Record summary
This 232-nucleotide sequence from Octopus sinensis belongs to the Rfam family "Small nucleolar RNA U3". About the family: Small nucleolar RNAs (snoRNAs) are involved in the processing and modification of rRNA in the nucleolus. There are two main classes of snoRNAs: the box C/D class, and the box H/ACA class. U3 snoRNA is a member of the box C/D class. Indeed, the box C/D element is a subset of the six short sequence elements found in all U3 snoRNAs, namely boxes A, A', B, C, C', and D. The U3 snoRNA secondary structure is characterised by a small 5' domain (with boxes A and A'), and a larger 3' domain (with boxes B, C, C', and D), the two domains being linked by a single-stranded hinge. Boxes B and C form the B/C motif, which appears to be exclusive to U3 snoRNAs, and boxes C' and D form the C'/D motif. The latter is functionally similar to the C/D motifs found in other snoRNAs. The 5' domain and the hinge region act as a pre-rRNA-binding domain. The 3' domain has conserved protein-binding sites. Both the box B/C and box C'/D motifs are sufficient for nuclear retention of U3 snoRNA. The box C'/D motif is also necessary for nucleolar localisation, stability and hyper-methylation of U3 snoRNA. Both box B/C and C'/D motifs are involved in specific protein interactions and are necessary for the rRNA processing functions of U3 snoRNA. By type it is a C/D-box small nucleolar RNA. A reference for the family is Zwieb (1997), "The uRNA database", Nucleic Acids Res.
[Rfam]
RNA sequence: AAGACCAUGCUUUUAAGGAUCAUUUCUUAAGUAUGUGUCGCAACGGUAUCCGAUUCCUUUGAUCGGUCAACAACAUCACGAUGAUGCGAGAUCGUAUUGAGUCCUGAGCGUGAAGCAGGAUCUCCUCUAUCGUUCGUUACUCCGCCUUCAACGAACGUGAGGAAUCCAUUGAAGAUCGUUCUUGAGAGGUUUAAUAACUUCUUAAAGAGGGACUCGAUACUUUCUGAGUGAU
Numbered sequence: 001a002a003g004a005c006c007a008u009g010c011u012u013u014u015a016a017g018g019a020u021c022a023u024u025u026c027u028u029a030a031g032u033a034u035g036u037g038u039c040g041c042a043a044c045g046g047u048a049u050c051c052g053a054u055u056c057c058u059u060u061g062a063u064c065g066g067u068c069a070a071c072a073a074c075a076u077c078a079c080g081a082u083g084a085u086g087c088g089a090g091a092u093c094g095u096a097u098u099g100a101g102u103c104c105u106g107a108g109c110g111u112g113a114a115g116c117a118g119g120a121u122c123u124c125c126u127c128u129a130u131c132g133u134u135c136g137u138u139a140c141u142c143c144g145c146c147u148u149c150a151a152c153g154a155a156c157g158u159g160a161g162g163a164a165u166c167c168a169u170u171g172a173a174g175a176u177c178g179u180u181c182u183u184g185a186g187a188g189g190u191u192u193a194a195u196a197a198c199u200u201c202u203u204a205a206a207g208a209g210g211g212a213c214u215c216g217a218u219a220c221u222u223u224c225u226g227a228g229u230g231a232u
Base pairs, nucleotide, nucleotide: 003039004038005037006035007034008033009032010031011030015028016027017026018025019024051065052064053063055062056061075232076231077230078229079228094220095219096218097217098216099215100214101213102212103211104210105209108179109178110177118167119166120165121164124162125161126160127159131157132156133155134154135153136152137151138150182206183205184203185202186201187200188199189198190197